[Rfam]
RNA sequence: AAGCAUAGCCAAUCGCUAUUAAUAAUUUUAUUAAUAGAGGAAAAUCCGCUCUAGCACUUUCUGAAAUGAAAGUAGUGUUCAUGCUGGAUCAAAUAAAUCCAGGCAGCAGUAAUGUUGACGACUAGUGCAACAGAGACGAGCUUAUUUAGUUAAGAUGAAACGAUGUAAACUCCGUGAGCUAGAAACCCAAAUUUUGGUAGGGGAACUAAGACAAGGGAAUAAAACUAAGUCUUGGAAGUUUUUAUAAACUUAGAUAAAUGAUUGGCACUCGAAAGAGGACAAAAAGCGGUUUAUAGUG
Numbered sequence: 001a002a003g004c005a006u007a008g009c010c011a012a013u014c015g016c017u018a019u020u021a022a023u024a025a026u027u028u029u030a031u032u033a034a035u036a037g038a039g040g041a042a043a044a045u046c047c048g049c050u051c052u053a054g055c056a057c058u059u060u061c062u063g064a065a066a067u068g069a070a071a072g073u074a075g076u077g078u079u080c081a082u083g084c085u086g087g088a089u090c091a092a093a094u095a096a097a098u099c100c101a102g103g104c105a106g107c108a109g110u111a112a113u114g115u116u117g118a119c120g121a122c123u124a125g126u127g128c129a130a131c132a133g134a135g136a137c138g139a140g141c142u143u144a145u146u147u148a149g150u151u152a153a154g155a156u157g158a159a160a161c162g163a164u165g166u167a168a169a170c171u172c173c174g175u176g177a178g179c180u181a182g183a184a185a186c187c188c189a190a191a192u193u194u195u196g197g198u199a200g201g202g203g204a205a206c207u208a209a210g211a212c213a214a215g216g217g218a219a220u221a222a223a224a225c226u227a228a229g230u231c232u233u234g235g236a237a238g239u240u241u242u243u244a245u246a247a248a249c250u251u252a253g254a255u256a257a258a259u260g261a262u263u264g265g266c267a268c269u270c271g272a273a274a275g276a277g278g279a280c281a282a283a284a285a286g287c288g289g290u291u292u293a294u295a296g297u298g
Stems, first nucleotide, its partner, number of pairs: 004298003007294001008266007016037006042292003046289005051182005056073006079177005084102006103119001104117005120172002125170002127166003141154004186202003206235007236251006268277003
A member of the RNA family "Bacterial RNase P class B" from Metamycoplasma subdolum, 298 nucleotides long. The literature on the family includes a 1999 paper in Nucleic Acids Res by Brown, "The Ribonuclease P Database". About the family: Ribonuclease P (RNase P) is a ubiquitous endoribonuclease, found in archaea, bacteria and eukarya as well as chloroplasts and mitochondria. Its best characterised activity is the generation of mature 5'-ends of tRNAs by cleaving the 5'-leader elements of precursor-tRNAs. Lineage of the source: Bacteria > Bacillati > Mycoplasmoidales > Metamycoplasmataceae > Metamycoplasma. Rfam classes the family as a ribozyme. A search with the family's covariance model found it, with a score of 215 bits. The family's consensus secondary structure is taken from published work.